[Rfam]
RNA sequence: AGGAGGAACAACCACAGUGGUGACGGCCAGCUCUCCAGCCCUGGAGUCAGCUCCUGCAGUAACUAUGGAGCUCUCAGUGCAGGGGCCUGGAUGCUCCAGGGACGG
Numbered sequence: 001a002g003g004a005g006g007a008a009c010a011a012c013c014a015c016a017g018u019g020g021u022g023a024c025g026g027c028c029a030g031c032u033c034u035c036c037a038g039c040c041c042u043g044g045a046g047u048c049a050g051c052u053c054c055u056g057c058a059g060u061a062a063c064u065a066u067g068g069a070g071c072u073c074u075c076a077g078u079g080c081a082g083g084g085g086c087c088u089g090g091a092u093g094c095u096c097c098a099g100g101g102a103c104g105g
Stems, first nucleotide, its partner, number of pairs: 002097004007092001009089002012085002019078001021076002025074002029072006037064001041059003
A member of the RNA family "mir-8834 microRNA precursor family" from Canis lupus, 105 nucleotides long.